[Rfam]
RNA: glmS glucosamine-6-phosphate activated ribozyme aptamer
Organism: Heyndrickxia oleronia
Nucleotides: 169
Stems, first nucleotide, its partner, number of pairs: 020052008029043001061092005070081004093109005114159007127145003131142004
Number, partner (000 for none) and nucleotide at each position: 001000a002000a003000g004000c005000a006000a007000c008000a009000c010000a011000a012000a013000g014000c015000g016000c017000c018000a019000g020052a021051a022050c023049u024048a025047a026046a027045c028000a029043a030000c031000g032000a033000g034000c035000g036000g037000a038000u039000a040000a041000a042000a043029u044000u045027g046026u047025u048024u049023a050022g051021u052020u053000g054000a055000c056000g057000a058000g059000g060000u061092g062091g063090a064089g065088g066000u067000u068000u069000a070081u071080c072079g073078a074000a075000g076000u077000u078073u079072c080071g081070g082000c083000g084000g085000a086000u087000a088065c089064c090063u091062c092061c093109c094108g095107a096106c097105u098000c099000c100000c101000a102000c103000a104000u105097a106096g107095u108094c109093g110000a111000g112000a113000u114159c115158u116157u117156u118155u119154u120153c121000u122000c123000a124000a125000a126000u127145c128144a129143c130000u131142u132141g133140a134139g135000g136000u137000g138000a139134c140133u141132c142131g143129g144128u145127g146000g147000a148000c149000a150000a151000a152000g153120g154119a155118a156117a157116a158115a159114g160000a161000a162000a163000u164000g165000u166000g167000a168000a169000u